[Rfam]
RNA sequence: UUAACUCGAAUAUGUAUGGAGUUGGAACAGCACCCCUAGCGGCAAACGUAGGCAAACGUUCCAACUCCAUACAAAUCGGAGUUA
Numbered sequence: 001u002u003a004a005c006u007c008g009a010a011u012a013u014g015u016a017u018g019g020a021g022u023u024g025g026a027a028c029a030g031c032a033c034c035c036c037u038a039g040c041g042g043c044a045a046a047c048g049u050a051g052g053c054a055a056a057c058g059u060u061c062c063a064a065c066u067c068c069a070u071a072c073a074a075a076u077c078g079g080a081g082u083u084a
Stems, first nucleotide, its partner, number of pairs: 010076002013073004018068001020066009034052002039047001
RNA: mir-2807 microRNA precursor family
Organism: Bombyx mori